[Rfam]
RNA: c-di-AMP riboswitch aptamer (ydaO/yuaA leader)
RNA sequence: ACCCUACACCUGCUGAAUCCUGAAGAUUUCAGGUACGGAGGAACCAUUCUAGGGGUUAAUCCAUUUAUGGAGGGGAACCUUCUAAGCCCUAACCCGUCAGCUAACUUCGGAAGCAAAAUAAAAGAAGGAGU
Numbered sequence: 001a002c003c004c005u006a007c008a009c010c011u012g013c014u015g016a017a018u019c020c021u022g023a024a025g026a027u028u029u030c031a032g033g034u035a036c037g038g039a040g041g042a043a044c045c046a047u048u049c050u051a052g053g054g055g056u057u058a059a060u061c062c063a064u065u066u067a068u069g070g071a072g073g074g075g076a077a078c079c080u081u082c083u084a085a086g087c088c089c090u091a092a093c094c095c096g097u098c099a100g101c102u103a104a105c106u107u108c109g110g111a112a113g114c115a116a117a118a119u120a121a122a123a124g125a126a127g128g129a130g131u
Stems, first nucleotide, its partner, number of pairs: 011115004019033006036109005045052001053095003061070003073089003